[Rfam]
RNA sequence: UGGUGGAAGCACAGGAUCCUGGACUGUGUCCCCUAGCGCCCUGGGCUCCAGGGCCUGCACCACUGGAAUCACGCUCCCUGGGUGCACAGCCCCCU
Numbered sequence: 001u002g003g004u005g006g007a008a009g010c011a012c013a014g015g016a017u018c019c020u021g022g023a024c025u026g027u028g029u030c031c032c033c034u035a036g037c038g039c040c041c042u043g044g045g046c047u048c049c050a051g052g053g054c055c056u057g058c059a060c061c062a063c064u065g066g067a068a069u070c071a072c073g074c075u076c077c078c079u080g081g082g083u084g085c086a087c088a089g090c091c092c093c094c095u
Stems, first nucleotide, its partner, number of pairs: 002094002005091002009087001011083002018081002021077003025073004029067002033065001034062001036060001038058002043055001045054003
mir-8799 microRNA precursor family: a 95-nucleotide RNA sequence from Nyctereutes procyonoides.
The base pairs follow the family's consensus structure, which was predicted with RNAalifold.